[Rfam]
RNA: small nucleolar RNA snoR126
Organism: Kalanchoe fedtschenkoi
RNA sequence: AGGCUGUGAUGACAAAAAUCGUUUCUCGAUGCUGAUCAAAUUGAAUUUGACCAUCGGCACGCAAUUCAUGUGUUUGCCUUGUGAUGACUUGUAAUUUGUGCGUGUCUGAGCCUC
Numbered sequence: 001a002g003g004c005u006g007u008g009a010u011g012a013c014a015a016a017a018a019u020c021g022u023u024u025c026u027c028g029a030u031g032c033u034g035a036u037c038a039a040a041u042u043g044a045a046u047u048u049g050a051c052c053a054u055c056g057g058c059a060c061g062c063a064a065u066u067c068a069u070g071u072g073u074u075u076g077c078c079u080u081g082u083g084a085u086g087a088c089u090u091g092u093a094a095u096u097u098g099u100g101c102g103u104g105u106c107u108g109a110g111c112c113u114c
Stems, first nucleotide, its partner, number of pairs: 001113004